About this RNA:
This 201-nucleotide RNA belongs to the Rfam family "manA RNA".
RNA sequence: UGUUGAAUCGACGGGUUCAACGGGGAGUGACUGAAUAAACUUUCUGGCAUAUAGCUGGUUAAGGUGACGAGACACAGGUGGUGCUGCUACUCGCAAGAGUAGAAUCGACUUACCAGUCGGGUCUCAGGCAAGGACGUAAAAUUUACUACUGUAGUAAUGCCCGUUCUUUGUUGGUAAUACAGAAACCCAACCUCCCACCCU
Number, nucleotide and partner (000 for none) at each position: 001u022002g021003u020004u019005g018006a017007a016008u015009c014010g000011a000012c000013g000014g009015g008016u007017u006018c005019a004020a003021c002022g001023g196024g195025g194026a193027g192028u000029g000030a065031c064032u000033g000034a000035a000036u000037a000038a000039a000040c000041u000042u000043u000044c058045u057046g056047g055048c054049a000050u000051a000052u000053a000054g048055c047056u046057g045058g044059u000060u000061a000062a000063g000064g031065u030066g000067a000068c000069g125070a124071g123072a122073c121074a000075c086076a085077g084078g000079u115080g114081g113082u112083g000084c077085u076086g075087c102088u101089a100090c099091u098092c097093g000094c000095a000096a000097g092098a091099g090100u089101a088102g087103a000104a000105u120106c119107g118108a117109c116110u000111u000112a082113c081114c080115a079116g109117u108118c107119g106120g105121g073122u072123c071124u070125c069126a000127g000128g000129c000130a168131a167132g166133g165134a164135c163136g162137u000138a000139a000140a000141a000142u000143u157144u156145a155146c154147u000148a000149c182150u181151g180152u179153a000154g146155u145156a144157a143158u000159g000160c000161c000162c136163g135164u134165u133166c132167u131168u130169u000170g191171u190172u189173g188174g187175u000176a000177a000178u000179a152180c151181a150182g149183a000184a000185a000186c000187c174188c173189a172190a171191c170192c027193u026194c025195c024196c023197a000198c000199c000200c000201u000

manA RNA has been located in 5'UTR regions of genes of mannose or fructose metabolism. Has been proposed as a cis-regulatory element and as a riboswitch candidate for his complex secondary structure.